tRNA: a 73-nucleotide sequence from Gemmata sp. SH-PL17. Transfer RNA (tRNA) molecules are approximately 80 nucleotides in length. Taxonomically the source falls in Gemmata (Bacteria, Pseudomonadati, Gemmatales, Gemmataceae).

RNA sequence: GGGCAGUUAGCUCAGUUGGUAGAGCGAGCGACUGAAAAUCGCUAGGUCCCCGGUUCAACCCCGGGACUGCCCA
Dot-bracket structure: (((((((..((((........)))).(((((.......))))).....(((((.......)))))))))))).
Numbered sequence: 001g002g003g004c005a006g007u008u009a010g011c012u013c014a015g016u017u018g019g020u021a022g023a024g025c026g027a028g029c030g031a032c033u034g035a036a037a038a039u040c041g042c043u044a045g046g047u048c049c050c051c052g053g054u055u056c057a058a059c060c061c062c063g064g065g066a067c068u069g070c071c072c073a
Stems, first nucleotide, its partner, number of pairs: 001072007010025004027043005049065005